[Rfam]
RNA sequence: GUAUGUGGAUAGUGUUCAGCAAUAAGGACAGGUGUGUUUACGUGUGUGUGGAUAGUGUUCAGCACCAAGGACAGGUGUGUUUACAU
Numbered sequence: 001g002u003a004u005g006u007g008g009a010u011a012g013u014g015u016u017c018a019g020c021a022a023u024a025a026g027g028a029c030a031g032g033u034g035u036g037u038u039u040a041c042g043u044g045u046g047u048g049u050g051g052a053u054a055g056u057g058u059u060c061a062g063c064a065c066c067a068a069g070g071a072c073a074g075g076u077g078u079g080u081u082u083a084c085a086u
Stems, first nucleotide, its partner, number of pairs: 001072002010067001012065005018059004023054002026047001028045003032041003
Shown here is an 86-nucleotide RNA from Branchiostoma belcheri, a member of the family "mir-2060 microRNA precursor family". Rfam links the family to the GO terms RISC complex and miRNA-mediated post-transcriptional gene silencing.